[Rfam]
RNA: Streptomyces RNA 6925
Organism: Streptomyces sp. CB03234
RNA sequence: UGUGGUACGCCGCUCCGUAGCGCCGUGCGAAAGGACACGGAGCGGCUGUGCGAGUGAUCGGUGCCCCUGUCGGGGGUUGCGGAUCACGAGCUGUCUGGCGUCCGGGAGGUGCGAACUCUCGGGCGCCGAUG
Numbered sequence: 001u002g003u004g005g006u007a008c009g010c011c012g013c014u015c016c017g018u019a020g021c022g023c024c025g026u027g028c029g030a031a032a033g034g035a036c037a038c039g040g041a042g043c044g045g046c047u048g049u050g051c052g053a054g055u056g057a058u059c060g061g062u063g064c065c066c067c068u069g070u071c072g073g074g075g076g077u078u079g080c081g082g083a084u085c086a087c088g089a090g091c092u093g094u095c096u097g098g099c100g101u102c103c104g105g106g107a108g109g110u111g112c113g114a115a116c117u118c119u120c121g122g123g124c125g126c127c128g129a130u131g
Base pairs, nucleotide, nucleotide: 002091006048007047010045011044012043013042014041015040016039017038018037023034024033050087052085053084055083061078064075065074066073067072096128097127098126099125100124101123102122103121104120105119106118107117108116